[Rfam]
RNA sequence: AAGGUCCGUUCGCAUGAAUUCGUCUGGCAGGGGCGGGGGAACCAAUUUUGGUCUUCGAUCCUGAAGGCCUUGGGGUUAAGUCGCAAAGCUUCCCAGGAAGCGGCGCGGCCGGGUGACUCCCAUCCGAAUCCGACAGCUCACCUCGCAGGCAUUGGGAGAGGCUAC
Numbered sequence: 001a002a003g004g005u006c007c008g009u010u011c012g013c014a015u016g017a018a019u020u021c022g023u024c025u026g027g028c029a030g031g032g033g034c035g036g037g038g039g040a041a042c043c044a045a046u047u048u049u050g051g052u053c054u055u056c057g058a059u060c061c062u063g064a065a066g067g068c069c070u071u072g073g074g075g076u077u078a079a080g081u082c083g084c085a086a087a088g089c090u091u092c093c094c095a096g097g098a099a100g101c102g103g104c105g106c107g108g109c110c111g112g113g114u115g116a117c118u119c120c121c122a123u124c125c126g127a128a129u130c131c132g133a134c135a136g137c138u139c140a141c142c143u144c145g146c147a148g149g150c151a152u153u154g155g156g157a158g159a160g161g162c163u164a165c
Base pairs, nucleotide, nucleotide: 006149007148011032013030033146034145035144036143037142038141043072044071073131074130075129081108082107083106084105111125112124113123114122